[Rfam]
RNA sequence: AAUGGUUGGUGGCGCGCUUCUCCCGAAUCAGGGCGACGUCGUCAUGCACAUUUCGCGUAACUGCCGUGCAGACACCCAGCCCGCUUAAGCGGGCUUUUUUUU
Numbered sequence: 001a002a003u004g005g006u007u008g009g010u011g012g013c014g015c016g017c018u019u020c021u022c023c024c025g026a027a028u029c030a031g032g033g034c035g036a037c038g039u040c041g042u043c044a045u046g047c048a049c050a051u052u053u054c055g056c057g058u059a060a061c062u063g064c065c066g067u068g069c070a071g072a073c074a075c076c077c078a079g080c081c082c083g084c085u086u087a088a089g090c091g092g093g094c095u096u097u098u099u100u101u102u
Stems, first nucleotide, its partner, number of pairs: 009045004016039002019036002022033003078095007
RNA: Tryptophan operon leader